[Rfam]
RNA: mir-2 microRNA precursor family
Organism: Diaphorina citri
Nucleotides: 074
Base pairs, nucleotide, nucleotide: 005068006067007066008064009063010062011061012060013058014057015056016055017054018053019052021050024049025048026047
Number, partner (000 for none) and nucleotide at each position: 001000u002000g003000u004000c005068u006067c007066a008064c009063a010062a011061a012060g013058u014057g015056g016055u017054u018053g019052u020000c021050a022000u023000a024049u025048g026047u027000g028000u029000c030000c031000a032000g033000u034000u035000u036000u037000u038000a039000g040000u041000c042000g043000c044000u045000u046000c047026a048025u049024a050021u051000c052019a053018c054017a055016g056015c057014c058013a059000g060012c061011u062010u063009u064008g065000a066007u067006g068005a069000g070000c071000g072000a073000c074000g